[Rfam]
RNA sequence: GUUGUCGGAUUCACUUUAAUCCAUGUAUAUUGGUAUGGGUUAGGGUGAAAUUUAGUUCAAGUUCCACUUUAAUCCACCUCAAUACAUGUGAAUUGAUGCGAAUACGACU
Numbered sequence: 001g002u003u004g005u006c007g008g009a010u011u012c013a014c015u016u017u018a019a020u021c022c023a024u025g026u027a028u029a030u031u032g033g034u035a036u037g038g039g040u041u042a043g044g045g046u047g048a049a050a051u052u053u054a055g056u057u058c059a060a061g062u063u064c065c066a067c068u069u070u071a072a073u074c075c076a077c078c079u080c081a082a083u084a085c086a087u088g089u090g091a092a093u094u095g096a097u098g099c100g101a102a103u104a105c106g107a108c109u
Base pairs, nucleotide, nucleotide: 004108005107006106007105009103010102011101012100014098016096017095018094019093020092022090023089024088025087026086028084029083030082031081032080036076037075038074039073040072041071042070043069045067046066047065

The family of this 109-nucleotide RNA sequence from Sorghum bicolor is "MIR5565 microRNA precursor family".
Rfam links the family to the GO terms RISC complex and miRNA-mediated post-transcriptional gene silencing.
The source organism's lineage runs through Eukaryota, Liliopsida, Andropogonodae, Andropogoneae and Sorghum.
The family has 7 seed sequences and 3,346 matches in Rfam 15.1.